Shown here is a 77-nucleotide RNA sequence from Takifugu flavidus, a member of the family "Small nucleolar RNA SNORD72". Rfam's curators write: snoRNA HBII-240 belongs to the CD family of snoRNAs. It is the human orthologue of the mouse MBII-240 and is predicted to guide 2'O-ribose methylation of the large 28S rRNA at residue U4590. The family has 16 seed sequences and 726 matches in Rfam 15.1. Gene Ontology terms of the family: RNA processing and nucleolus. The match comes from Rfam's covariance-model search (48 bits). For this family Rfam cites "RNomics: an experimental approach that identifies 201 candidates for novel, small, non-messenger RNAs in mouse" (Huttenhofer et al., EMBO J, 2001). The pairing is the family consensus, mapped onto this sequence. The source organism's lineage runs through Eukaryota, Ctenosquamata, Euacanthomorphacea, Tetradontoidea and Takifugu.
RNA sequence: GUCUUGUCAGUGAUGCUAAUCAUAAAUGUCCGAACAUAUGACUUAUUGUGAUUCAUUUGUCUGUACUGAGACAAGAC
Numbered sequence: 001g002u003c004u005u006g007u008c009a010g011u012g013a014u015g016c017u018a019a020u021c022a023u024a025a026a027u028g029u030c031c032g033a034a035c036a037u038a039u040g041a042c043u044u045a046u047u048g049u050g051a052u053u054c055a056u057u058u059g060u061c062u063g064u065a066c067u068g069a070g071a072c073a074a075g076a077c
Base pairs, nucleotide, nucleotide: 002076003075004074005073006072007071008070